[Rfam]
The family of this 144-nucleotide sequence from Rhizobium sp. RU36D is "FMN riboswitch aptamer (RFN element)". A search with the family's covariance model found it, with a score of 109 bits. Taxonomically the source falls in Rhizobium (Bacteria, Pseudomonadati, Pseudomonadota, Rhizobiaceae). Its family is annotated with FMN binding in the Gene Ontology.
RNA sequence: CCGGGUUCUCAGGGCGGGGCGAAACUCCCCACCGGCGGUAUCCGGCGUUGCCGGGAGCCCGCGAGCGCUUCCACUUCGGUGGAAGGCAGCAGAUCCGGUGCGAUGCCGGAGCCGACGGUAUAGUCCGGAUGGAAGAGGACAAGG
Numbered sequence: 001c002c003g004g005g006u007u008c009u010c011a012g013g014g015c016g017g018g019g020c021g022a023a024a025c026u027c028c029c030c031a032c033c034g035g036c037g038g039u040a041u042c043c044g045g046c047g048u049u050g051c052c053g054g055g056a057g058c059c060c061g062c063g064a065g066c067g068c069u070u071c072c073a074c075u076u077c078g079g080u081g082g083a084a085g086g087c088a089g090c091a092g093a094u095c096c097g098g099u100g101c102g103a104u105g106c107c108g109g110a111g112c113c114g115a116c117g118g119u120a121u122a123g124u125c126c127g128g129a130u131g132g133a134a135g136a137g138g139a140c141a142a143g144g
Base pairs, nucleotide, nucleotide: 005140006139007138008137009136010135017029018028019027031124032123033114034113035062036061037060038059057112058111065090066089094110095109096108097107098106116127117126118125